This 89-nucleotide sequence belongs to the Rfam family "Peptidase-S11 RNA". Rfam classes the family as a cis-regulatory element.
[Rfam]
RNA sequence: CGUAUGAUACCGCUGCCAGCCCGCAUCCUCACUGGCUUGAUGCGCGCGGCCUGUGUCUCAACACAGCGCAAAACUCCUGACCGGAUUUU
Numbered sequence: 001c002g003u004a005u006g007a008u009a010c011c012g013c014u015g016c017c018a019g020c021c022c023g024c025a026u027c028c029u030c031a032c033u034g035g036c037u038u039g040a041u042g043c044g045c046g047c048g049g050c051c052u053g054u055g056u057c058u059c060a061a062c063a064c065a066g067c068g069c070a071a072a073a074c075u076c077c078u079g080a081c082c083g084g085a086u087u088u089u
Stems, first nucleotide, its partner, number of pairs: 015050003019047002022044006051066006